[Rfam]
RNA sequence: AUGAUUGUGCUCAAAGUAAAUCAGGAUUCUUACCCUUUCCUAUAUUAGCUUUGAGCACUAAAAA
Numbered sequence: 001a002u003g004a005u006u007g008u009g010c011u012c013a014a015a016g017u018a019a020a021u022c023a024g025g026a027u028u029c030u031u032a033c034c035c036u037u038u039c040c041u042a043u044a045u046u047a048g049c050u051u052u053g054a055g056c057a058c059u060a061a062a063a064a
Stems, first nucleotide, its partner, number of pairs: 007058009023041004